[Rfam]
RNA sequence: CUCGGCUGAGGGGACGCGAGGAUUCCGGUCGCCAGUGCUUCGGGCCCGGCCCGGACGCUUAGCAAGCUACCUGAGGAGCGGCUCUUCGGAGCCGAACCUGGAUCCCCGGGACUGAACUGCAGCCUGCUCUUCCUGCCUCUGUUCUCACGAGGGGGCUCCCGUCUCGCACCCCACCUCUGGACGUGCCUCCCUUUCCCUCUCUCCGCGUGCGGAGGGAGCCAGCGCAUAGGCCGGAGCGAGCCUGGGGGCCGCCGGCCGCGAAGGCUUCGCGGGCACCCGUUCGCCAUG
Dot-bracket structure: (((.......)))..((((.........))))...............................................(((.(.............................................(((.(..............).)))))))..........................((.((((.....((.............))..)))).))..........(.(.(((...........)))).).................................
A member of the RNA family "HIF-1 alpha IRES" from Erinaceus europaeus, 288 nucleotides long. This family represents the hypoxia-inducible factor 1-alpha internal ribosome entry site. HIF-1a is a subunit of the HIF-1 transcription factor, which induces transcription of several genes involved in the cellular response to hypoxia. The HIF-1a IRES allows translation to be maintained under hypoxic cell conditions that inhibit cap-dependent translation. The family's consensus secondary structure was predicted with RNAfold. It is one of the family's seed sequences. A reference for the family is Lang et al. (2002), "Hypoxia-inducible factor-1alpha mRNA contains an internal ribosome entry site that allows efficient translation during normoxia and hypoxia", Mol Biol Cell. By type it is an internal ribosome entry site. Gene Ontology term of the family: ribosome binding. Taxonomically the source falls in Erinaceus (Eukaryota, Teleostomi, Amniota, Erinaceinae).